The family of this 80-nucleotide sequence from Alligator sinensis is "Mammalian CPEB3 ribozyme".
RNA sequence: AGAGGUCACAAGUUCCAGGCCACAGCAGAAAUGCUCAUGGUGCAGCCGUGUCAGAUUUCAAUGACUCUGGAAAUUCUGCU
Numbered sequence: 001a002g003a004g005g006u007c008a009c010a011a012g013u014u015c016c017a018g019g020c021c022a023c024a025g026c027a028g029a030a031a032u033g034c035u036c037a038u039g040g041u042g043c044a045g046c047c048g049u050g051u052c053a054g055a056u057u058u059c060a061a062u063g064a065c066u067c068u069g070g071a072a073a074u075u076c077u078g079c080u
Stems, first nucleotide, its partner, number of pairs: 016048001018047003024080007032042002052069004057064002
A search with the family's covariance model found it, with a score of 35 bits. Rfam links the family to the GO term RNA nuclease activity.